[Rfam]
RNA: Ruegeria cis52 sRNA
Organism: Rhodobacter sp. 24-YEA-8
RNA sequence: UUCUCAGCGCGUGUUUCAUGACGACCUGGGCAAAGCUGACGCCCUUGAGGCGUGCGGUGCGGAUAUAUUGCUGGCUCAUCACCUCGGUCAUCGAGGCGCGGGUCAUGCGGGCGAUGUAUCCGAUGCCGUAAAGCGCGAUGGUCAUCACCGGCAGCGCGAAAUUCCAGAAGGUGAUCUUA
Numbered sequence: 001u002u003c004u005c006a007g008c009g010c011g012u013g014u015u016u017c018a019u020g021a022c023g024a025c026c027u028g029g030g031c032a033a034a035g036c037u038g039a040c041g042c043c044c045u046u047g048a049g050g051c052g053u054g055c056g057g058u059g060c061g062g063a064u065a066u067a068u069u070g071c072u073g074g075c076u077c078a079u080c081a082c083c084u085c086g087g088u089c090a091u092c093g094a095g096g097c098g099c100g101g102g103u104c105a106u107g108c109g110g111g112c113g114a115u116g117u118a119u120c121c122g123a124u125g126c127c128g129u130a131a132a133g134c135g136c137g138a139u140g141g142u143c144a145u146c147a148c149c150g151g152c153a154g155c156g157c158g159a160a161a162u163u164c165c166a167g168a169a170g171g172u173g174a175u176c177u178u179a
Base pairs, nucleotide, nucleotide: 004141005140006139008137009136010135011134012133014131015130016128021124027123029121030120037113040111042109046105047104048103051100052099053098054097059071060070061069062068082096083095084094085093086092145179147177151172152171154165156163